About this RNA: This 161-nucleotide RNA sequence from Heyndrickxia shackletonii belongs to the Rfam family "glmS glucosamine-6-phosphate activated ribozyme aptamer". Rfam classes the family as a riboswitch. NCBI's taxonomy places the organism under Bacteria, Bacillota, Bacilli, Bacillaceae, Heyndrickxia. It scores 126 bits against the family's covariance model.

RNA sequence: UUUUAUUUAAAAGCGCCAGAACUAAACGUAGAGGUUUAGUUGACGAGGUGGAGGAGUAUCGAGGAUUUCGGCGGAUACCUCCCGGCUGCCACACACAGUCGAUGUCUUUUUCUUAAAACACUGAGGUGACUUGGUGCACAAAGGAAAAAGAAAAGUGGAAA
Number, nucleotide and partner (000 for none) at each position: 001u000002u000003u000004u000005a000006u000007u000008u000009a000010a000011a000012a000013g000014c000015g000016c000017c000018a000019g000020a041021a040022c039023u038024a037025a036026a035027c034028g000029u000030a000031g000032a000033g000034g027035u026036u025037u024038a023039g022040u021041u020042g000043a000044c000045g000046a000047g000048g000049u000050g082051g081052a080053g079054g078055a000056g000057u000058a000059u071060c070061g069062a068063g000064g000065a000066u000067u000068u062069c061070g060071g059072c000073g000074g000075a000076u000077a000078c054079c053080u052081c051082c050083c101084g100085g099086c098087u097088g096089c000090c000091a000092c000093a000094c000095a000096c088097a087098g086099u085100c084101g083102a000103u000104g000105u151106c150107u149108u148109u147110u146111u145112c000113u000114u000115a000116a000117a000118a000119c136120a135121c134122u133123g132124a131125g130126g000127u000128g000129a000130c125131u124132u123133g122134g121135u120136g119137c000138a000139c000140a000141a000142a000143g000144g000145a111146a110147a109148a108149a107150g106151a105152a000153a000154a000155g000156u000157g000158g000159a000160a000161a000